[Rfam]
RNA sequence: GUCGGGAUGCCGAGGUCUGGGUCCCGAUCCAACAAACUUUGCUGAUAUUCAGGAGGUUGCACAUGAAC
Numbered sequence: 001g002u003c004g005g006g007a008u009g010c011c012g013a014g015g016u017c018u019g020g021g022u023c024c025c026g027a028u029c030c031a032a033c034a035a036a037c038u039u040u041g042c043u044g045a046u047a048u049u050c051a052g053g054a055g056g057u058u059g060c061a062c063a064u065g066a067a068c
Stems, first nucleotide, its partner, number of pairs: 001028008010020002012017001032057002037055003042052004